Acido-Lenti-1 RNA: a 46-nucleotide sequence. The base pairs follow the family's consensus structure, which is taken from published work. The match comes from Rfam's covariance-model search (46 bits). By type it is a small RNA. The family has 87 seed sequences and 2,607 matches in Rfam 15.1.
RNA sequence: CCCCGGGCUUACGCCCGGGGCUAACUGCUGUCGUGGCUGCGCCGCU
Numbered sequence: 001c002c003c004c005g006g007g008c009u010u011a012c013g014c015c016c017g018g019g020g021c022u023a024a025c026u027g028c029u030g031u032c033g034u035g036g037c038u039g040c041g042c043c044g045c046u
Stems, first nucleotide, its partner, number of pairs: 001020008033045005